[Rfam]
RNA sequence: GAUGGAUUUGAUCCAAUCCAUUAACCAAUUUUUUUUCUUAUGGAUGGAUUGGAUUGAUCUAUUA
Numbered sequence: 001g002a003u004g005g006a007u008u009u010g011a012u013c014c015a016a017u018c019c020a021u022u023a024a025c026c027a028a029u030u031u032u033u034u035u036u037c038u039u040a041u042g043g044a045u046g047g048a049u050u051g052g053a054u055u056g057a058u059c060u061a062u063u064a
Stems, first nucleotide, its partner, number of pairs: 004060005011054012028036001

Source information:
The family of this 64-nucleotide RNA from Trifolium medium is "MIR5291 microRNA precursor family". Gene Ontology terms of the family: miRNA-mediated post-transcriptional gene silencing and RISC complex.